[Rfam]
RNA sequence: UUGCACGUAGCAACCCCGGGCUUCUCUGAAAUUUAACGAUGAAGAAAGAAGCCCCAAUGCUAGUGCUAGAGCUAUUGCCGUUUAGUGUUGCAGAUUUUGUCGCUUUGUACCUUCAUUUCCACGGCCAAUCUGUGUCAAAAAAACCGCUAAAUUC
Numbered sequence: 001u002u003g004c005a006c007g008u009a010g011c012a013a014c015c016c017c018g019g020g021c022u023u024c025u026c027u028g029a030a031a032u033u034u035a036a037c038g039a040u041g042a043a044g045a046a047a048g049a050a051g052c053c054c055c056a057a058u059g060c061u062a063g064u065g066c067u068a069g070a071g072c073u074a075u076u077g078c079c080g081u082u083u084a085g086u087g088u089u090g091c092a093g094a095u096u097u098u099g100u101c102g103c104u105u106u107g108u109a110c111c112u113u114c115a116u117u118u119c120c121a122c123g124g125c126c127a128a129u130c131u132g133u134g135u136c137a138a139a140a141a142a143a144c145c146g147c148u149a150a151a152u153u154c
Stems, first nucleotide, its partner, number of pairs: 003066004010060002018054005023048001025045003077147002080144004086137002089134006102125003
Dot-bracket structure: ..((((...((......((((((.(((...............)))..).)))))....))..))))..........((.((((..((.((((((.......(((..................)))...)))))).))...)))).)).......

Description
The record is a 154-nucleotide RNA sequence from Phtheirospermum japonicum, which matches "small nucleolar RNA snoR134" in Rfam. For this family Rfam cites "Mining small RNA sequencing data: a new approach to identify small nucleolar RNAs in Arabidopsis" (Chen and Wu, Nucleic Acids Res, 2009). Lineage of the source: Eukaryota > Viridiplantae > asterids > lamiids > Phtheirospermum. The family has 5 seed sequences and 792 matches in Rfam 15.1. Pairs were carried over by alignment from the consensus structure, which was predicted with RNAalifold.